[Rfam]
RNA sequence: AAACUGAAGAGUUUGAUCAUGGCUCAGAUUGAACGCUGGCGGUAGGCUUAACACAUGCAAGUCGAGCGGAAACGAUCCUAGCUUGCUAGGAGGCGUCGAGCGGCGGACGGGUGAGUAACGCGUAGGAACCUGCCCGGUAGUUGGGGAUAGCCCGGAGAAAUCCGGAUUAAUACCGAAUAAUCUCUACGGAGGAAAGGCGGCUUCGGCUGUCGCUACUGGAUGGGCCUGCGUUGGAUUAGCUAGUUGGUGAGGUAAGAGCUCACCAAGGCGACGAUCCAUAGCUGGUCUGAGAGGAUGAUCAGCCACACUGGGACUGAGACACGGCCCAGACUCCUACGGGAGGCAGCAGUGGGGAAUAUUGGGCAAUGGGCGCAAGCCUGACCCAGCCAUACCGCGUGUGUGAAGAAGGCCUUCGGGUUGUAAAGCACUUUCAGCGAGGAGGAAAGGUUGAUGGUUAAUACCCAUCAGCUGUGACGUUACUCGCAGAAGAAGCACCGGCUAACUCCGUGCCAGCAGCCGCGGUAAUACGGAGGGUGCAAGCGUUAAUCGGAAUUACUG
Numbered sequence: 001a002a003a004c005u006g007a008a009g010a011g012u013u014u015g016a017u018c019a020u021g022g023c024u025c026a027g028a029u030u031g032a033a034c035g036c037u038g039g040c041g042g043u044a045g046g047c048u049u050a051a052c053a054c055a056u057g058c059a060a061g062u063c064g065a066g067c068g069g070a071a072a073c074g075a076u077c078c079u080a081g082c083u084u085g086c087u088a089g090g091a092g093g094c095g096u097c098g099a100g101c102g103g104c105g106g107a108c109g110g111g112u113g114a115g116u117a118a119c120g121c122g123u124a125g126g127a128a129c130c131u132g133c134c135c136g137g138u139a140g141u142u143g144g145g146g147a148u149a150g151c152c153c154g155g156a157g158a159a160a161u162c163c164g165g166a167u168u169a170a171u172a173c174c175g176a177a178u179a180a181u182c183u184c185u186a187c188g189g190a191g192g193a194a195a196g197g198c199g200g201c202u203u204c205g206g207c208u209g210u211c212g213c214u215a216c217u218g219g220a221u222g223g224g225c226c227u228g229c230g231u232u233g234g235a236u237u238a239g240c241u242a243g244u245u246g247g248u249g250a251g252g253u254a255a256g257a258g259c260u261c262a263c264c265a266a267g268g269c270g271a272c273g274a275u276c277c278a279u280a281g282c283u284g285g286u287c288u289g290a291g292a293g294g295a296u297g298a299u300c301a302g303c304c305a306c307a308c309u310g311g312g313a314c315u316g317a318g319a320c321a322c323g324g325c326c327c328a329g330a331c332u333c334c335u336a337c338g339g340g341a342g343g344c345a346g347c348a349g350u351g352g353g354g355a356a357u358a359u360u361g362g363g364c365a366a367u368g369g370g371c372g373c374a375a376g377c378c379u380g381a382c383c384c385a386g387c388c389a390u391a392c393c394g395c396g397u398g399u400g401u402g403a404a405g406a407a408g409g410c411c412u413u414c415g416g417g418u419u420g421u422a423a424a425g426c427a428c429u430u431u432c433a434g435c436g437a438g439g440a441g442g443a444a445a446g447g448u449u450g451a452u453g454g455u456u457a458a459u460a461c462c463c464a465u466c467a468g469c470u471g472u473g474a475c476g477u478u479a480c481u482c483g484c485a486g487a488a489g490a491a492g493c494a495c496c497g498g499c500u501a502a503c504u505c506c507g508u509g510c511c512a513g514c515a516g517c518c519g520c521g522g523u524a525a526u527a528c529g530g531a532g533g534g535u536g537c538a539a540g541c542g543u544u545a546a547u548c549g550g551a552a553u554u555a556c557u558g
Base pairs, nucleotide, nucleotide: 009025010024011023012022013021027548028547029546030545032544033543034542035541036540037539039395040394041393042392043391044390045388046387047353052351053350054349056348057347058346061104062103063102066101067100069097070096076091077090078089079088080087081086111306112305113304120231121230122229123228124227125226126225129223130222134219135218136217137216138215139214140213142176144174145173150167152165153164154163155162156161182191183190184189196211197210198209199208200207201206232278233277234276239269240268241267244266245265246264247263248262249261250260251259281303282302283301284300285296286295287294288293308329309328310327311326312325331342332341333340334339359385361384362383363382367380368379369378370377371376398428399427400426401425408419409418410417411416432489434484435483436482437481438480442475449468492537493536494535495534496533503532504531505530506529507528513520514519
RNA: Bacterial small subunit ribosomal RNA, nucleotides 1 to 558
Organism: Reinekea blandensis